[Rfam]
RNA sequence: AUAAAAUCGAUGACCAGGAGUAGUAAAUAUCAUACUAAGUUAUAGCGAGUCCGGAAUGGUGCAAGCCGGGUACUGAAGGUGAUAUUGAAUGGGCCUGUGAGAUGAAAUGUGAAAUUAAAGUAGCAUAUUCCGGUAGUCUACCGUUAAAAUGACAGGGUAUCGAGAAAUCUGUACCUGCAGAGAUAUUUUGUACUUAGGUGGCAAUAACGAAAUUAAAGCAUUUCGUCCUUAGUGGAUGAAGUGCUUUUUUAAACCACAAAAGUAUGAAAUAAUUUGGGUGGCACCGCGGAGUCACUUCGUCCCAUGG
Numbered sequence: 001a002u003a004a005a006a007u008c009g010a011u012g013a014c015c016a017g018g019a020g021u022a023g024u025a026a027a028u029a030u031c032a033u034a035c036u037a038a039g040u041u042a043u044a045g046c047g048a049g050u051c052c053g054g055a056a057u058g059g060u061g062c063a064a065g066c067c068g069g070g071u072a073c074u075g076a077a078g079g080u081g082a083u084a085u086u087g088a089a090u091g092g093g094c095c096u097g098u099g100a101g102a103u104g105a106a107a108u109g110u111g112a113a114a115u116u117a118a119a120g121u122a123g124c125a126u127a128u129u130c131c132g133g134u135a136g137u138c139u140a141c142c143g144u145u146a147a148a149a150u151g152a153c154a155g156g157g158u159a160u161c162g163a164g165a166a167a168u169c170u171g172u173a174c175c176u177g178c179a180g181a182g183a184u185a186u187u188u189u190g191u192a193c194u195u196a197g198g199u200g201g202c203a204a205u206a207a208c209g210a211a212a213u214u215a216a217a218g219c220a221u222u223u224c225g226u227c228c229u230u231a232g233u234g235g236a237u238g239a240a241g242u243g244c245u246u247u248u249u250u251a252a253a254c255c256a257c258a259a260a261a262g263u264a265u266g267a268a269a270u271a272a273u274u275u276g277g278g279u280g281g282c283a284c285c286g287c288g289g290a291g292u293c294a295c296u297u298c299g300u301c302c303c304a305u306g307g
Stems, first nucleotide, its partner, number of pairs: 007102002015097004026086006038074003049071006105129002107126004131143003245269004250264001275304004286300005